[Rfam]
RNA sequence: GCCCUUGGCGCCGUAGCAGCACAUCAUGGAUUGCGGGUGUUGUAGAUGCAAGCCAUGCUGUGCGGCCUUGGUGCCAGGGAG
Numbered sequence: 001g002c003c004c005u006u007g008g009c010g011c012c013g014u015a016g017c018a019g020c021a022c023a024u025c026a027u028g029g030a031u032u033g034c035g036g037g038u039g040u041u042g043u044a045g046a047u048g049c050a051a052g053c054c055a056u057g058c059u060g061u062g063c064g065g066c067c068u069u070g071g072u073g074c075c076a077g078g079g080a081g
Base pairs, nucleotide, nucleotide: 003079004078005077006076013069016066017065019063020062021061022060023059026056027055028054029053031051032050033049034048035047
Notes:
The record is an 81-nucleotide RNA from Petromyzon marinus, which matches "mir-15 microRNA precursor family" in Rfam. Its family is annotated with miRNA-mediated post-transcriptional gene silencing and RISC complex in the Gene Ontology. About the family: This family represents the related mir-15a and mir-15b sequences. In humans miR-15a and miR-16 are clustered within 0.5 kb at 13q14. This region has been shown to be deleted in more than half of B cell chronic lymphocytic leukaemias (CLL). Both miR-15a and miR-16 are deleted or down-regulated in more than two thirds of CLL cases. The mature sequence is excised from the 5' arm of the hairpin. Taxonomically the source falls in Petromyzon (Eukaryota, Eumetazoa, Craniata, Petromyzontidae). Rfam's curators put it in the seed alignment.